[Rfam]
RNA sequence: UGUCACGAUGAUGACUUCAUAAUAUUCAAGCUCAACAGACCGGAUUGCAGGCUCCUCUUUUAGAGUUUGCUUGCAUGUCGAUUACCCCGCUGAACUGAGUGACU
Numbered sequence: 001u002g003u004c005a006c007g008a009u010g011a012u013g014a015c016u017u018c019a020u021a022a023u024a025u026u027c028a029a030g031c032u033c034a035a036c037a038g039a040c041c042g043g044a045u046u047g048c049a050g051g052c053u054c055c056u057c058u059u060u061u062a063g064a065g066u067u068u069g070c071u072u073g074c075a076u077g078u079c080g081a082u083u084a085c086c087c088c089g090c091u092g093a094a095c096u097g098a099g100u101g102a103c104u
Base pairs, nucleotide, nucleotide: 002103003102004101005100006099